[Rfam]
The family of this 186-nucleotide RNA from Rattus norvegicus is "Connexin-43 internal ribosome entry site (IRES)". A search with the family's covariance model found it, with a score of 74 bits. NCBI's taxonomy places the organism under Eukaryota, Sarcopterygii, Rodentia, Myomorpha, Rattus. A reference for the family is Schiavi et al. (1999), "Connexin43 mRNA contains a functional internal ribosome entry site", FEBS Lett. Its family is annotated with ribosome binding in the Gene Ontology. The family's consensus secondary structure is taken from published work.
RNA sequence: AGCUUUUGCCUGGUGUCAGCAAUUUCCUUUUAUUGGGGGAGUAGGGAAGGUACCGAACAGCAGCAGGCUUUUAGACUUUAGGCAGGUGUGACUCUUGAACUUACUGUCUUAUUUCACUUCAUCCUCCAAGGCGUGCACUCACUUGGUGUGCCCACCUUUUAAGUGCAAGAACAACGGACAGGCAAC
Numbered sequence: 001a002g003c004u005u006u007u008g009c010c011u012g013g014u015g016u017c018a019g020c021a022a023u024u025u026c027c028u029u030u031u032a033u034u035g036g037g038g039g040a041g042u043a044g045g046g047a048a049g050g051u052a053c054c055g056a057a058c059a060g061c062a063g064c065a066g067g068c069u070u071u072u073a074g075a076c077u078u079u080a081g082g083c084a085g086g087u088g089u090g091a092c093u094c095u096u097g098a099a100c101u102u103a104c105u106g107u108c109u110u111a112u113u114u115c116a117c118u119u120c121a122u123c124c125u126c127c128a129a130g131g132c133g134u135g136c137a138c139u140c141a142c143u144u145g146g147u148g149u150g151c152c153c154a155c156c157u158u159u160u161a162a163g164u165g166c167a168a169g170a171a172c173a174a175c176g177g178a179c180a181g182g183c184a185a186c
Stems, first nucleotide, its partner, number of pairs: 002020003007015003029133001031131001033129007040118002043113002046110001048109003067087004088104004142182004149176002152169001153165003157161001
Dot-bracket structure: .(((..(((...)))..)))........(.(.(((((((((.((.(.(((................((((.............))))((((.........))))..)))).))...))....))))))).).)........((((...((.((((.(...).)))...).....))..))))....
Rfam describes the family as follows. This family represents the connexin-43 internal ribosome entry site (IRES) which allows cap independent translation during conditions such as heat shock and stress.